U11 spliceosomal RNA: a 240-nucleotide sequence from Drosophila mojavensis. It is annotated as a spliceosomal small nuclear RNA. The match comes from Rfam's covariance-model search (54 bits). Its family is annotated with pre-mRNA 5'-splice site binding, mRNA 5'-splice site recognition and U11 snRNP in the Gene Ontology. Its Rfam clan is "U1 clan".
RNA sequence: AAAAAGGGUGCUCGUCUUUGGCGCUUUCCGUAUUUUACGAGAAACAGUGCGGACGCAUUGUGCCGUUUGCCCAUUCCUACGCUCUUCGUGGGCGGGGGCGCGCGUCGAAUUGCCGUCUUCGAUGGGUGCAAACGCGCAUAGUGGGGUAUGGCUUUGCAUAUCCAGUGCGUAAUUUUUGUGUUAGGGGCAUAGGUAGCUGUACGUUUGGGACGGCCGGAUAGCGGAGUUCUCUGCGUGCCG
Numbered sequence: 001a002a003a004a005a006g007g008g009u010g011c012u013c014g015u016c017u018u019u020g021g022c023g024c025u026u027u028c029c030g031u032a033u034u035u036u037a038c039g040a041g042a043a044a045c046a047g048u049g050c051g052g053a054c055g056c057a058u059u060g061u062g063c064c065g066u067u068u069g070c071c072c073a074u075u076c077c078u079a080c081g082c083u084c085u086u087c088g089u090g091g092g093c094g095g096g097g098g099c100g101c102g103c104g105u106c107g108a109a110u111u112g113c114c115g116u117c118u119u120c121g122a123u124g125g126g127u128g129c130a131a132a133c134g135c136g137c138a139u140a141g142u143g144g145g146g147u148a149u150g151g152c153u154u155u156g157c158a159u160a161u162c163c164a165g166u167g168c169g170u171a172a173u174u175u176u177u178g179u180g181u182u183a184g185g186g187g188c189a190u191a192g193g194u195a196g197c198u199g200u201a202c203g204u205u206u207g208g209g210a211c212g213g214c215c216g217g218a219u220a221g222c223g224g225a226g227u228u229c230u231c232u233g234c235g236u237g238c239c240g
Stems, first nucleotide, its partner, number of pairs: 008168005013055005056143008064134007144163007187238004193234004199229001201227002
Dot-bracket structure: .......((((((((((.................................)))))(((((((((((((((.........................................................))))))).))))))))(((((((......))))))))))))..................((((..((((..(.((.......................)).).))))))))..